A member of the RNA family "SmY spliceosomal RNA" from Haemonchus placei, 78 nucleotides long. It scores 57 bits against the family's covariance model.
RNA sequence: GGUGAAGUGAAACACUUUGCAGGGCCUUUCAUAAGACCCAAUGCUAAAUUUUUGCAGACCCUUGCAGGAGCAAGGGUG
Number, nucleotide and partner (000 for none) at each position: 001g000002g000003u000004g000005a000006a000007g000008u000009g000010a000011a000012a000013c000014a000015c000016u000017u000018u000019g000020c000021a000022g039023g038024g037025c000026c035027u034028u033029u000030c000031a000032u000033a028034a027035g026036a000037c024038c023039c022040a000041a000042u000043g000044c000045u000046a000047a000048a000049u000050u000051u000052u000053u000054g000055c000056a000057g000058a077059c076060c075061c074062u073063u072064g071065c070066a000067g000068g000069a000070g065071c064072a063073a062074g061075g060076g059077u058078g000
Pairs were carried over by alignment from the consensus structure, which is taken from published work.
The literature on the family includes a 2007 paper in RNA by MacMorris et al., "A novel family of C. elegans snRNPs contains proteins associated with trans-splicing".